RNA sequence: UCUGCGGUUCCAAAGUGCUCACAGUGCAGGUAGUACUCGCCCAUCUACUGCAGUUUGUGCACUUCAGGUGCUGCUGG
Numbered sequence: 001u002c003u004g005c006g007g008u009u010c011c012a013a014a015g016u017g018c019u020c021a022c023a024g025u026g027c028a029g030g031u032a033g034u035a036c037u038c039g040c041c042c043a044u045c046u047a048c049u050g051c052a053g054u055u056u057g058u059g060c061a062c063u064u065c066a067g068g069u070g071c072u073g074c075u076g077g
Stems, first nucleotide, its partner, number of pairs: 004074004010068002013064006020057002023054001025052003029049005
RNA: mir-17 microRNA precursor family
Organism: Amphiprion ocellaris